Description
This 94-nucleotide sequence from Caldicellulosiruptor owensensis belongs to the Rfam family "S10-Clostridia ribosomal protein leader". A search with the family's covariance model found it, with a score of 39 bits. By type it is a cis-regulatory leader. Lineage of the source: Bacteria > Bacillota > Caldicellulosiruptorales > Caldicellulosiruptoraceae > Caldicellulosiruptor owensensis.

[Rfam]
RNA sequence: AUGCUGCGAUGAGGCAAAAGGUUGCUGCAAGGCGAAAAGUCGCUUUGCAGGGAAUUUUUGCUGAGUAUGUCUUGUCCUUUGAGACGGGCGACAC
Numbered sequence: 001a002u003g004c005u006g007c008g009a010u011g012a013g014g015c016a017a018a019a020g021g022u023u024g025c026u027g028c029a030a031g032g033c034g035a036a037a038a039g040u041c042g043c044u045u046u047g048c049a050g051g052g053a054a055u056u057u058u059u060g061c062u063g064a065g066u067a068u069g070u071c072u073u074g075u076c077c078u079u080u081g082a083g084a085c086g087g088g089c090g091a092c093a094c
Stems, first nucleotide, its partner, number of pairs: 014061003018058004025050010068093004074089004